RNA sequence: UGCUGUCAUUGUUAGGUGAGGCUACUGAAGGGAUAUGGAUUACUGCCGCAAGAGAGUGGAGACACUCAGCGUUGGCGAACAGUCUUUAUCGAUUACAAGGUAUAGAAUAGUGUAAUUUCACUGCCCUUCAAAGCUAAAGCUCAGACGUUAUAGCUGAUAUAA
Numbered sequence: 001u002g003c004u005g006u007c008a009u010u011g012u013u014a015g016g017u018g019a020g021g022c023u024a025c026u027g028a029a030g031g032g033a034u035a036u037g038g039a040u041u042a043c044u045g046c047c048g049c050a051a052g053a054g055a056g057u058g059g060a061g062a063c064a065c066u067c068a069g070c071g072u073u074g075g076c077g078a079a080c081a082g083u084c085u086u087u088a089u090c091g092a093u094u095a096c097a098a099g100g101u102a103u104a105g106a107a108u109a110g111u112g113u114a115a116u117u118u119c120a121c122u123g124c125c126c127u128u129c130a131a132a133g134c135u136a137a138a139g140c141u142c143a144g145a146c147g148u149u150a151u152a153g154c155u156g157a158u159a160u161a162a
Base pairs, nucleotide, nucleotide: 005158006157007156008155010153011146012145013098015141016140017139020135021134022133026130027129028128029127030126031125032124039116040115041114042113043112045076046075047074048073055066056065057064058063083106084105085104088101089100090099
M-box riboswitch aptamer (ykoK leader): a 162-nucleotide RNA sequence from Ignavigranum ruoffiae.
Taxonomically the source falls in Ignavigranum (Bacteria, Bacillota, Bacilli, Lactobacillales).
A search with the family's covariance model found it, with a score of 98 bits.
The pairing is the family consensus, mapped onto this sequence.
Rfam 15.1 lists 1,095 matches to the family in 932 species.
Rfam describes the family as follows. M-box riboswitch, also know as ykoK leader is described as a metaloregulatory RNA that sense divalent metals and function as a genetic control element of genes related to divalent metal transport in bacteria.